Shown here is a 181-nucleotide sequence from Paraphotobacterium marinum, a member of the family "Lysine riboswitch aptamer". From the family's description: Riboswitches are metabolite binding domains within certain messenger RNAs that serve as precision sensors for their corresponding targets. The base pairs follow the family's consensus structure, which is taken from published work. The source organism's lineage runs through Bacteria, Pseudomonadati, Vibrionales, Vibrionaceae and Paraphotobacterium. It scores 78 bits against the family's covariance model.
[Rfam]
RNA sequence: UCGAUUAGAAGAGGUGCGUAUUUCAGGUAGUCAUAUUUUUAAAGACCUAACUUUAGUGAUGAUAUGAUCAGGGGAAAUUACGCCGAGGUAUUGAUUAAAUUAGGAAUAUUGAUAUCGGCAAUGAAGGCUGAAUCCUUCAUGCUGUCACUUAAGGAAUAAAAAGUGUUGAGCUUCUAAUAAA
Numbered sequence: 001u002c003g004a005u006u007a008g009a010a011g012a013g014g015u016g017c018g019u020a021u022u023u024c025a026g027g028u029a030g031u032c033a034u035a036u037u038u039u040u041a042a043a044g045a046c047c048u049a050a051c052u053u054u055a056g057u058g059a060u061g062a063u064a065u066g067a068u069c070a071g072g073g074g075a076a077a078u079u080a081c082g083c084c085g086a087g088g089u090a091u092u093g094a095u096u097a098a099a100u101u102a103g104g105a106a107u108a109u110u111g112a113u114a115u116c117g118g119c120a121a122u123g124a125a126g127g128c129u130g131a132a133u134c135c136u137u138c139a140u141g142c143u144g145u146c147a148c149u150u151a152a153g154g155a156a157u158a159a160a161a162a163g164u165g166u167u168g169a170g171c172u173u174c175u176a177a178u179a180a181a
Base pairs, nucleotide, nucleotide: 006176007175008174009173010172011171016083017082018081019080020079021077022076023075024074031067032066033065034064035063036062037061087116088115089114090113091112092111093110094109095108117143118142119141120140122139123138124137125136126135127134146165147164148163149162150161